[Rfam]
RNA sequence: UCGAACAGUCGUGACUGGCGUACAGAUGGACACCAUCGGGGAGCGACGAACCGAGAGUCUGGCCGCUCGCCUGGGCCGUUGAA
Numbered sequence: 001u002c003g004a005a006c007a008g009u010c011g012u013g014a015c016u017g018g019c020g021u022a023c024a025g026a027u028g029g030a031c032a033c034c035a036u037c038g039g040g041g042a043g044c045g046a047c048g049a050a051c052c053g054a055g056a057g058u059c060u061g062g063c064c065g066c067u068c069g070c071c072u073g074g075g076c077c078g079u080u081g082a083a
Base pairs, nucleotide, nucleotide: 003052008047009046010045011044012043015040016039017071018070019069020068026036027035028034029033060078061077062076063075064074
RNA: ZMP/ZTP riboswitch aptamer (pfl RNA motif)